[Rfam]
Nucleotides: 066
Stems, first nucleotide, its partner, number of pairs: 002066004
Number, partner (000 for none) and nucleotide at each position: 001000c002066a003065g004064c005063a006000u007000a008000u009000g010000a011000u012000g013000a014000c015000c016000c017000u018000g019000g020000a021000u022000g023000u024000g025000g026000a027000u028000u029000c030000u031000c032000c033000u034000u035000c036000a037000u038000g039000g040000g041000a042000g043000a044000u045000g046000c047000a048000a049000a050000u051000u052000c053000c054000a055000u056000u057000u058000u059000u060000u061000u062000a063005u064004g065003c066002u